[Rfam]
The record is a 125-nucleotide RNA from Dendrobium catenatum, which matches "MIR390 microRNA precursor family" in Rfam. It scores 84 bits against the family's covariance model. Gene Ontology terms of the family: miRNA-mediated post-transcriptional gene silencing and RISC complex. The source organism's lineage runs through Eukaryota, Viridiplantae, Orchidaceae, Dendrobieae and Dendrobium. The literature on the family includes a 2005 paper in Nucleic Acids Res by Gustafson et al., "ASRP: the Arabidopsis Small RNA Project Database".
RNA sequence: UGGAGAAAUCCGUAAAGCUCAGGAGGGAUAGCGCCAUUGUUAAUCGGAGCGCUCAGGAAUUUACUGAAAUUUUCUCUUCCUUUGAUCUGUGACGCUGUCUAUCCUGAGCUUUAUAGGUUCUUCAU
Numbered sequence: 001u002g003g004a005g006a007a008a009u010c011c012g013u014a015a016a017g018c019u020c021a022g023g024a025g026g027g028a029u030a031g032c033g034c035c036a037u038u039g040u041u042a043a044u045c046g047g048a049g050c051g052c053u054c055a056g057g058a059a060u061u062u063a064c065u066g067a068a069a070u071u072u073u074c075u076c077u078u079c080c081u082u083u084g085a086u087c088u089g090u091g092a093c094g095c096u097g098u099c100u101a102u103c104c105u106g107a108g109c110u111u112u113a114u115a116g117g118u119u120c121u122u123c124a125u
Stems, first nucleotide, its partner, number of pairs: 010116001016110009026100008035091003